[Rfam]
RNA sequence: GCAGCCUGAAGUGACUCGUAUGCUUCUUUACAGACGAGCUGUCUCGUACGGCUAUAACGAAGCGGGUAAGGUCUGAGAGUUCUAACUUCCCUCGUCAUACAACUCGAGAUGGGUUGAACGAUAAUUCGUUGAGCGACGCACCAGAAAAGCACUCUCUUGUGGAUUAGCUGAAGACAGUCUUCCUCGAGGCGACGAUAUCCACAGCCGAGAGUUGGGAACACGUCGUGGGAGUCGCAGACGUGGUUCUCAGGGUUGAGAAUAGCUUUAUACACCUACAUGGUGUAUAGAUCACGCCACUGCUGCUUAAGUGCACUACGAGUCGUCCUGCAGCAGGAAAACUCGAUUCAGACUACUCUUAGGCUGC
Numbered sequence: 001g002c003a004g005c006c007u008g009a010a011g012u013g014a015c016u017c018g019u020a021u022g023c024u025u026c027u028u029u030a031c032a033g034a035c036g037a038g039c040u041g042u043c044u045c046g047u048a049c050g051g052c053u054a055u056a057a058c059g060a061a062g063c064g065g066g067u068a069a070g071g072u073c074u075g076a077g078a079g080u081u082c083u084a085a086c087u088u089c090c091c092u093c094g095u096c097a098u099a100c101a102a103c104u105c106g107a108g109a110u111g112g113g114u115u116g117a118a119c120g121a122u123a124a125u126u127c128g129u130u131g132a133g134c135g136a137c138g139c140a141c142c143a144g145a146a147a148a149g150c151a152c153u154c155u156c157u158u159g160u161g162g163a164u165u166a167g168c169u170g171a172a173g174a175c176a177g178u179c180u181u182c183c184u185c186g187a188g189g190c191g192a193c194g195a196u197a198u199c200c201a202c203a204g205c206c207g208a209g210a211g212u213u214g215g216g217a218a219c220a221c222g223u224c225g226u227g228g229g230a231g232u233c234g235c236a237g238a239c240g241u242g243g244u245u246c247u248c249a250g251g252g253u254u255g256a257g258a259a260u261a262g263c264u265u266u267a268u269a270c271a272c273c274u275a276c277a278u279g280g281u282g283u284a285u286a287g288a289u290c291a292c293g294c295c296a297c298u299g300c301u302g303c304u305u306a307a308g309u310g311c312a313c314u315a316c317g318a319g320u321c322g323u324c325c326u327g328c329a330g331c332a333g334g335a336a337a338a339c340u341c342g343a344u345u346c347a348g349a350c351u352a353c354u355c356u357u358a359g360g361c362u363g364c
Stems, first nucleotide, its partner, number of pairs: 001364004007358003013320001016317001021064005037053006073348005088230004101115005117130005133226006152211003323335005